This 72-nucleotide RNA sequence from Pseudonocardiaceae bacterium YIM PH 21723 belongs to the Rfam family "6C RNA". Pairs were carried over by alignment from the consensus structure, which is taken from published work. The family's RNA type in Rfam is cis-regulatory element. A search with the family's covariance model found it, with a score of 70 bits. Lineage of the source: Bacteria > Bacillati > Actinomycetota > Pseudonocardiales > Pseudonocardiaceae.
[Rfam]
RNA sequence: CGGUUCAGCUCGACCCCCCGGAGCUGAACAUCGACGGCCCCCGCCCCUCCCCCCUGGCGGGGGUCGUUCUAU
Numbered sequence: 001c002g003g004u005u006c007a008g009c010u011c012g013a014c015c016c017c018c019c020g021g022a023g024c025u026g027a028a029c030a031u032c033g034a035c036g037g038c039c040c041c042c043g044c045c046c047c048u049c050c051c052c053c054c055u056g057g058c059g060g061g062g063g064u065c066g067u068u069c070u071a072u
Stems, first nucleotide, its partner, number of pairs: 003029009033068013
For this family Rfam cites "Identification of 22 candidate structured RNAs in bacteria using the CMfinder comparative genomics pipeline" (Weinberg et al., Nucleic Acids Res, 2007).